[Rfam]
RNA sequence: CAGUGACGCUAGGGGUGCCCUGCAGGCGAGGGGGCUGAGACGGCCGUGGACGCGGCUGACCCUCUGAACCUGAACCGGGUCAUUCCGGCGGAGGGAAGCGGCGCGAGGAAGGG
Numbered sequence: 001c002a003g004u005g006a007c008g009c010u011a012g013g014g015g016u017g018c019c020c021u022g023c024a025g026g027c028g029a030g031g032g033g034g035c036u037g038a039g040a041c042g043g044c045c046g047u048g049g050a051c052g053c054g055g056c057u058g059a060c061c062c063u064c065u066g067a068a069c070c071u072g073a074a075c076c077g078g079g080u081c082a083u084u085c086c087g088g089c090g091g092a093g094g095g096a097a098g099c100g101g102c103g104c105g106a107g108g109a110a111g112g113g
Stems, first nucleotide, its partner, number of pairs: 007100004011063004017035005042057005069094003075088004
The family of this 113-nucleotide sequence from Aggregicoccus sp. 17bor-14 is "TPP riboswitch aptamer (THI element)". The match comes from Rfam's covariance-model search (62 bits). The organism belongs to Aggregicoccus, within Bacteria. Its family is annotated with thiamine pyrophosphate binding in the Gene Ontology.